Shown here is a 130-nucleotide RNA sequence from Phyllostomus discolor, a member of the family "Small nucleolar RNA SNORA69".
RNA sequence: AAAUCAGAUUGCAAUUACAGUGCUUCAUUUUGUGGAAGUACUGUCAUCCUACUGAAGGAAAAUUUUGUGUUGAUCAUUUUUGGUUUUGCCUUCAUGAGGGUAAAAUCAUGAUGGACUGACAUGGACAAUU
Numbered sequence: 001a002a003a004u005c006a007g008a009u010u011g012c013a014a015u016u017a018c019a020g021u022g023c024u025u026c027a028u029u030u031u032g033u034g035g036a037a038g039u040a041c042u043g044u045c046a047u048c049c050u051a052c053u054g055a056a057g058g059a060a061a062a063u064u065u066u067g068u069g070u071u072g073a074u075c076a077u078u079u080u081u082g083g084u085u086u087u088g089c090c091u092u093c094a095u096g097a098g099g100g101u102a103a104a105a106u107c108a109u110g111a112u113g114g115a116c117u118g119a120c121a122u123g124g125a126c127a128a129u130u
Stems, first nucleotide, its partner, number of pairs: 004055004018043009065124008074115002081108012
Rfam's curators write: U69 is a member of the H/ACA class of small nucleolar RNAs (snoRNAs) which act as guides in the the modification of uridines to pseudouridines.